[Rfam]
RNA sequence: GUAAACAUGCGGGGGUGCUUGAUGUCCAAGUCCAUCAAGCUGAGAUAGGCAUGAACGCCUGACCCUUUGAACCUGUUGGUUAGGACCAACGUAGGGAGCAGAUCAUGAGCGAUG
Numbered sequence: 001g002u003a004a005a006c007a008u009g010c011g012g013g014g015g016u017g018c019u020u021g022a023u024g025u026c027c028a029a030g031u032c033c034a035u036c037a038a039g040c041u042g043a044g045a046u047a048g049g050c051a052u053g054a055a056c057g058c059c060u061g062a063c064c065c066u067u068u069g070a071a072c073c074u075g076u077u078g079g080u081u082a083g084g085a086c087c088a089a090c091g092u093a094g095g096g097a098g099c100a101g102a103u104c105a106u107g108a109g110c111g112a113u114g
Base pairs, nucleotide, nucleotide: 008100009099010098011066012065013064014063017040018039019038020037021036022035023034024033047060048059049058050057072095073094074093075092076089077088078087079086
RNA: TPP riboswitch aptamer (THI element)